[Rfam]
RNA sequence: UGACCACCCACAGAUGUGGGGAAAGGCCAUACGGACAGCCGGGUCAACUGCCGA
Numbered sequence: 001u002g003a004c005c006a007c008c009c010a011c012a013g014a015u016g017u018g019g020g021g022a023a024a025g026g027c028c029a030u031a032c033g034g035a036c037a038g039c040c041g042g043g044u045c046a047a048c049u050g051c052c053g054a
Stems, first nucleotide, its partner, number of pairs: 001046005007020005
RNA: Streptococcus sRNA SpF59 (ldcC RNA)
Organism: Coprococcus sp. HPP0048